Nucleotides: 063
Stems, first nucleotide, its partner, number of pairs: 003058008012049010025034001
Number, partner (000 for none) and nucleotide at each position: 001000u002000u003058a004057c005056a006055a007054u008053u009052a010051a011000a012049g013048g014047a015046u016045a017044u018043u019042u020041c021040u022000u023000g024000a025034g026000g027000c028000a029000u030000u031000a032000u033000c034025u035000a036000a037000a038000a039000c040021g041020g042019a043018a044017a045016u046015a047014u048013c049012c050000a051010u052009u053008a054007a055006u056005u057004g058003u059000u060000u061000g062000a063000c